[Rfam]
RNA sequence: AUGUAGUGUGACAUGCCCGUUGGGUUAUUACUCUAAUGAAUUAUUUAUUAUUUAAUUGAUUUUUGGGAACGGGGUGUUACAAUUGG
Numbered sequence: 001a002u003g004u005a006g007u008g009u010g011a012c013a014u015g016c017c018c019g020u021u022g023g024g025u026u027a028u029u030a031c032u033c034u035a036a037u038g039a040a041u042u043a044u045u046u047a048u049u050a051u052u053u054a055a056u057u058g059a060u061u062u063u064u065g066g067g068a069a070c071g072g073g074g075u076g077u078u079a080c081a082a083u084u085g086g
Base pairs, nucleotide, nucleotide: 002086005083007081008080009079010078011077012076013075014074016073017072018071019070020069021068
Rfam assigns this 86-nucleotide sequence from Medicago truncatula to the family "MIR2617 microRNA precursor family". The family has 3 seed sequences and 1,174 matches in Rfam 15.1. The source organism's lineage runs through Eukaryota, Tracheophyta, Pentapetalae, Trifolieae and Medicago. Its family is annotated with RISC complex and miRNA-mediated post-transcriptional gene silencing in the Gene Ontology.